[Rfam]
RNA sequence: AGACGGCGCUAAAGCGCCUCCUCAGCAUGAACGGGUUGGAGGGAUAUUAAAAAACCACAUUGCAACCAGCUUGUCAACUAAAACUUAAG
Numbered sequence: 001a002g003a004c005g006g007c008g009c010u011a012a013a014g015c016g017c018c019u020c021c022u023c024a025g026c027a028u029g030a031a032c033g034g035g036u037u038g039g040a041g042g043g044a045u046a047u048u049a050a051a052a053a054a055c056c057a058c059a060u061u062g063c064a065a066c067c068a069g070c071u072u073g074u075c076a077a078c079u080a081a082a083a084c085u086u087a088a089g
Base pairs, nucleotide, nucleotide: 002020003019005018006017007016008015009014023062024061025060028059029058036051037050
The record is an 89-nucleotide RNA from Legionella lansingensis, which matches "Legionella RNA 69" in Rfam. It is annotated as a small RNA. Identified by strand specific sequencing of the transcriptional response during broth growth and during infection inside the host. The match comes from Rfam's covariance-model search (43 bits). On this family, see Weissenmayer et al., PLoS One 2011: "Sequencing illustrates the transcriptional response of Legionella pneumophila during infection and identifies seventy novel small non-coding RNAs". NCBI's taxonomy places the organism under Bacteria, Pseudomonadati, Pseudomonadota, Legionellales, Legionella.